[Rfam]
RNA sequence: AUGUUCAGGUAAUCGCUGUAGCAUCAUUGAUGGUAUAGAGGAAAGUCCAUGCUCGCACGAUCUGAGAUGAUCGUAGUGUUCGUGCCUAGCCAAGACAUAAGCUAGGGUAAUCUGGAUUUUUCUAGAUUAACGGCUAGAAAAUCACCUAAGUCUGUUUUACAGAUAGGGUUAUUUUCUUGUAAAAGUGCCAUAGAGACGAGUUUUACUGGAAACAGUAAAAGUGGAACGUGGUAAACCCCUCGAGCGAGAAACUCAAAUUUGGUAGAGGAAUUCUCUGGAUGGAAAUGAACGGAAAGAGAGACAGACUAUAAUGUCUGUAGAUAGAUGAUUACCACCGGCGUACGAGGAUAAUGAUCCGCAUGAAGUACAAUGGAUACAGAACAUGGCUUAUCGAA
Numbered sequence: 001a002u003g004u005u006c007a008g009g010u011a012a013u014c015g016c017u018g019u020a021g022c023a024u025c026a027u028u029g030a031u032g033g034u035a036u037a038g039a040g041g042a043a044a045g046u047c048c049a050u051g052c053u054c055g056c057a058c059g060a061u062c063u064g065a066g067a068u069g070a071u072c073g074u075a076g077u078g079u080u081c082g083u084g085c086c087u088a089g090c091c092a093a094g095a096c097a098u099a100a101g102c103u104a105g106g107g108u109a110a111u112c113u114g115g116a117u118u119u120u121u122c123u124a125g126a127u128u129a130a131c132g133g134c135u136a137g138a139a140a141a142u143c144a145c146c147u148a149a150g151u152c153u154g155u156u157u158u159a160c161a162g163a164u165a166g167g168g169u170u171a172u173u174u175u176c177u178u179g180u181a182a183a184a185g186u187g188c189c190a191u192a193g194a195g196a197c198g199a200g201u202u203u204u205a206c207u208g209g210a211a212a213c214a215g216u217a218a219a220a221g222u223g224g225a226a227c228g229u230g231g232u233a234a235a236c237c238c239c240u241c242g243a244g245c246g247a248g249a250a251a252c253u254c255a256a257a258u259u260u261g262g263u264a265g266a267g268g269a270a271u272u273c274u275c276u277g278g279a280u281g282g283a284a285a286u287g288a289a290c291g292g293a294a295a296g297a298g299a300g301a302c303a304g305a306c307u308a309u310a311a312u313g314u315c316u317g318u319a320g321a322u323a324g325a326u327g328a329u330u331a332c333c334a335c336c337g338g339c340g341u342a343c344g345a346g347g348a349u350a351a352u353g354a355u356c357c358g359c360a361u362g363a364a365g366u367a368c369a370a371u372g373g374a375u376a377c378a379g380a381a382c383a384u385g386g387c388u389u390a391u392c393g394a395a
Stems, first nucleotide, its partner, number of pairs: 004395003007391001008333007016038005043389003047386005052248005057074006080243003084239001085106006107131001108129009132238002135179003144169003150164005185236002187232003201220008252267003271300006301318006335373003340368004